[Rfam]
Nucleotides: 069
Base pairs, nucleotide, nucleotide: 004065006063007062008061009060010059011058013056014055015054017050018049019048020047021046022045024043025042026041
Number, partner (000 for none) and nucleotide at each position: 001000a002000u003000c004065a005000g006063u007062a008061c009060c010059c011058u012000c013056a014055c015054a016000u017050a018049g019048c020047a021046u022045u023000g024043a025042c026041u027000u028000g029000u030000c031000a032000g033000c034000u035000g036000u037000a038000u039000a040000g041026a042025g043024u044000a045022a046021g047020u048019g049018c050017u051000a052000u053000u054015u055014g056013u057000u058011g059010g060009g061008g062007u063006a064000g065004u066000u067000u068000u069000a